[Rfam]
Nucleotides: 129
Base pairs, nucleotide, nucleotide: 008079009078010077011076012075013026014025015024016023017022027050028049029048030047031046032045033044034043035042036041051074052073053072054071055070056069057068097127099126100125101124103123104122105121106120107119109118110117111116
Number, partner (000 for none) and nucleotide at each position: 001000u002000a003000a004000a005000a006000g007000g008079g009078c010077u011076u012075u013026u014025a015024c016023c017022g018000u019000c020000a021000a022017u023016g024015g025014u026013a027050c028049g029048u030047c031046g032045g033044u034043c035042u036041g037000g038000a039000g040000a041036c042035g043034g044033a045032u046031c047030g048029g049028c050027g051074c052073g053072g054071a055070a056069u057068c058000g059000c060000c061000a062000u063000c064000a065000a066000g067000a068057g069056a070055u071054u072053u073052c074051g075012g076011a077010a078009g079008c080000g081000u082000a083000a084000u085000g086000u087000u088000u089000g090000g091000a092000a093000a094000c095000c096000u097127g098000u099126g100125g101124c102000a103123g104122u105121u106120g107119g108000u109118c110117g111116c112000c113000a114000a115000u116111g117110c118109g119107c120106c121105g122104a123103c124101g125100c126099c127097c128000a129000c